Rfam assigns this 343-nucleotide RNA from Ructibacterium gallinarum to the family "Bacterial RNase P class A". Gene Ontology terms of the family: ribonuclease P activity, dimeric ribonuclease P complex and tRNA processing. A search with the family's covariance model found it, with a score of 288 bits. Taxonomically the source falls in Ructibacterium (Bacteria, Bacillati, Bacillota, Clostridia). It is annotated as a ribozyme.

RNA sequence: UCAGUAAACCAGAUGGUCGCGCAUAGCGGCGUCGCUGUUAUGUGAGGAAAGUCCGGGCUCCAUAGGACAGGGUGCAAGCUAACGGCUUGUGGAGGCGACUCUAAGGAAAGUGCAACAGAAAGAUACCGCCCGCUUUUGGCGGGUAAGGGUGGAAAGGCGAGGUAAGAGCUCACCCGCCCGUAUGGUGACAUACGGGCGCUGUAAACCCCACUCGGAGCAACGCUUGAAUGGGAGGCUAAGCUGGUCCGGCAUCUCCCGAGAAGGCGGCUUGAGGCGUGUGGCGACAUGCGUCCCAGAUAGAUGACCAUCCGCGACAGAACCCGGCUUACGGUUUGCUGAUAUU
Numbered sequence: 001u002c003a004g005u006a007a008a009c010c011a012g013a014u015g016g017u018c019g020c021g022c023a024u025a026g027c028g029g030c031g032u033c034g035c036u037g038u039u040a041u042g043u044g045a046g047g048a049a050a051g052u053c054c055g056g057g058c059u060c061c062a063u064a065g066g067a068c069a070g071g072g073u074g075c076a077a078g079c080u081a082a083c084g085g086c087u088u089g090u091g092g093a094g095g096c097g098a099c100u101c102u103a104a105g106g107a108a109a110g111u112g113c114a115a116c117a118g119a120a121a122g123a124u125a126c127c128g129c130c131c132g133c134u135u136u137u138g139g140c141g142g143g144u145a146a147g148g149g150u151g152g153a154a155a156g157g158c159g160a161g162g163u164a165a166g167a168g169c170u171c172a173c174c175c176g177c178c179c180g181u182a183u184g185g186u187g188a189c190a191u192a193c194g195g196g197c198g199c200u201g202u203a204a205a206c207c208c209c210a211c212u213c214g215g216a217g218c219a220a221c222g223c224u225u226g227a228a229u230g231g232g233a234g235g236c237u238a239a240g241c242u243g244g245u246c247c248g249g250c251a252u253c254u255c256c257c258g259a260g261a262a263g264g265c266g267g268c269u270u271g272a273g274g275c276g277u278g279u280g281g282c283g284a285c286a287u288g289c290g291u292c293c294c295a296g297a298u299a300g301a302u303g304a305c306c307a308u309c310c311g312c313g314a315c316a317g318a319a320c321c322c323g324g325c326u327u328a329c330g331g332u333u334u335g336c337u338g339a340u341a342u343u
Stems, first nucleotide, its partner, number of pairs: 001339010012309007020044009049327003053324005058217004065247004070213005075089005090104001091102004105208002110206002112202003126148002128144007156174002159171003176197009221266004230257006240250003273292008